[Rfam]
RNA sequence: UGGGCUGGCCGGGCGACCGCGUGGAGGAGACUCCCCGAGGAAGGUCCGGGCUCCACAGGGCAGAGUGGUGGGUAACACCCACCCGGGGCAACCCGCGGGACAGUGCCACAGAGAACAGACCGCCCCGCCCCGCUCCGGCGAGGAGGGGUAAGGGUGAAACGGCGGUGUAAGAGACCACCAGCGACCGGGGCGACCCGGCCGGCUCGGCAAACCCCACUUGGAGCAAGGUCAAGAAGUCCCGUGCUUGCACGGGACGCGCGCACGUUCGAGGGCGGCCCGCCCGAGUGCGCGGGUAGACCGCUGGAGGGUGUCGGCAACGGCACCCGUAGAUGGAUGGUCGCCCCCCGGCUCGCCGGGGACAGAACCCGGCCUACAGGCCAGCCCAUCCG
Numbered sequence: 001u002g003g004g005c006u007g008g009c010c011g012g013g014c015g016a017c018c019g020c021g022u023g024g025a026g027g028a029g030a031c032u033c034c035c036c037g038a039g040g041a042a043g044g045u046c047c048g049g050g051c052u053c054c055a056c057a058g059g060g061c062a063g064a065g066u067g068g069u070g071g072g073u074a075a076c077a078c079c080c081a082c083c084c085g086g087g088g089c090a091a092c093c094c095g096c097g098g099g100a101c102a103g104u105g106c107c108a109c110a111g112a113g114a115a116c117a118g119a120c121c122g123c124c125c126c127g128c129c130c131c132g133c134u135c136c137g138g139c140g141a142g143g144a145g146g147g148g149u150a151a152g153g154g155u156g157a158a159a160c161g162g163c164g165g166u167g168u169a170a171g172a173g174a175c176c177a178c179c180a181g182c183g184a185c186c187g188g189g190g191c192g193a194c195c196c197g198g199c200c201g202g203c204u205c206g207g208c209a210a211a212c213c214c215c216a217c218u219u220g221g222a223g224c225a226a227g228g229u230c231a232a233g234a235a236g237u238c239c240c241g242u243g244c245u246u247g248c249a250c251g252g253g254a255c256g257c258g259c260g261c262a263c264g265u266u267c268g269a270g271g272g273c274g275g276c277c278c279g280c281c282c283g284a285g286u287g288c289g290c291g292g293g294u295a296g297a298c299c300g301c302u303g304g305a306g307g308g309u310g311u312c313g314g315c316a317a318c319g320g321c322a323c324c325c326g327u328a329g330a331u332g333g334a335u336g337g338u339c340g341c342c343c344c345c346c347g348g349c350u351c352g353c354c355g356g357g358g359a360c361a362g363a364a365c366c367c368g369g370c371c372u373a374c375a376g377g378c379c380a381g382c383c384c385a386u387c388c389g
Stems, first nucleotide, its partner, number of pairs: 001385010011374001012342007020037002023034004042372003046369005051223004058278004063219005068082005083097001084095004098214002103212002105208003120153002122149005128143002161179002164176003181203001182201002185198005227299004258290006270282004306325008

This 389-nucleotide sequence from Nocardioides sp. JS614 belongs to the Rfam family "Bacterial RNase P class A". It is annotated as a ribozyme. Rfam's curators put it in the seed alignment. The organism belongs to Nocardioides, within Bacteria. The family's consensus secondary structure is taken from published work.